[Rfam]
Annotation: This 131-nucleotide RNA from Corynebacterium capitovis belongs to the Rfam family "atpB RNA". The source organism's lineage runs through Bacteria, Bacillati, Actinomycetota, Mycobacteriales and Corynebacterium capitovis. Pairs were carried over by alignment from the consensus structure, which is taken from published work. It is annotated as a cis-regulatory element.
RNA sequence: CUGCCCCGCGGUCGCUGAUGUGCGACGGAGUCCGCCGCGGACGGCAGCAGUUUUUAAAGACGUCCAUCGCACCGCUCCCCGCGCCGACGGGGUGCGGCCCGAGAACGGGAGAGAACGCUGAGCGUUACAAC
Numbered sequence: 001c002u003g004c005c006c007c008g009c010g011g012u013c014g015c016u017g018a019u020g021u022g023c024g025a026c027g028g029a030g031u032c033c034g035c036c037g038c039g040g041a042c043g044g045c046a047g048c049a050g051u052u053u054u055u056a057a058a059g060a061c062g063u064c065c066a067u068c069g070c071a072c073c074g075c076u077c078c079c080c081g082c083g084c085c086g087a088c089g090g091g092g093u094g095c096g097g098c099c100c101g102a103g104a105a106c107g108g109g110a111g112a113g114a115a116c117g118c119u120g121a122g123c124g125u126u127a128c129a130a131c
Stems, first nucleotide, its partner, number of pairs: 001047005006040006072097004077092005
Dot-bracket structure: (((((((((((.......................))))))..)))))........................((((.(((((......))))).))))..................................